A member of the RNA family "RT-14 RNA", 145 nucleotides long. Rfam classes the family as a small RNA. Rfam's curators put it in the seed alignment.

[Rfam]
Nucleotides: 145
Stems, first nucleotide, its partner, number of pairs: 003055007013047002020041009078088004102145002104142011120127002
Number, partner (000 for none) and nucleotide at each position: 001000c002000u003055c004054u005053a006052a007051u008050a009049u010000c011000a012000a013047u014046c015000u016000a017000g018000a019000u020041u021040a022039u023038u024037u025036a026035u027034u028033u029000u030000a031000u032000g033028g034027a035026a036025u037024a038023a039022a040021u041020a042000c043000a044000a045000u046014g047013a048000a049009a050008u051007a052006u053005u054004a055003g056000a057000u058000a059000u060000u061000a062000a063000a064000g065000a066000g067000g068000u069000u070000u071000a072000u073000u074000c075000c076000u077000u078088c079087c080086u081085a082000a083000u084000u085081u086080a087079g088078g089000u090000a091000a092000a093000a094000a095000u096000g097000u098000a099000u100000c101000a102145g103144c104142a105141a106140a107139u108138u109137a110136u111135g112134u113133a114132u115000u116000a117000g118000u119000a120127g121126u122000u123000a124000u125000u126121a127120u128000g129000a130000a131000a132114a133113u134112a135111u136110g137109u138108a139107a140106u141105u142104u143000a144103g145102c